This 86-nucleotide RNA from Arachis hypogaea belongs to the Rfam family "Small nucleolar RNA snoR53Y". The family's consensus secondary structure was predicted with WAR. Clan: snoR53 clan. NCBI's taxonomy places the organism under Eukaryota, Viridiplantae, Streptophytina, dalbergioids sensu lato, Arachis. By type it is a C/D-box small nucleolar RNA.

Nucleotides: 086
Stems, first nucleotide, its partner, number of pairs: 001085005
Number, partner (000 for none) and nucleotide at each position: 001085g002084u003083u004082c005081c006000c007000a008000a009000u010000g011000a012000u013000g014000c015000a016000u017000u018000u019000u020000g021000u022000u023000a024000u025000a026000u027000c028000a029000u030000g031000c032000u033000a034000a035000u036000g037000u038000a039000u040000a041000c042000c043000u044000g045000a046000a047000g048000c049000u050000a051000u052000a053000u054000g055000a056000u057000u058000g059000a060000g061000a062000u063000u064000u065000g066000g067000u068000u069000u070000a071000u072000u073000g074000u075000a076000c077000u078000g079000a080000g081005g082004g083003a084002a085001c086000u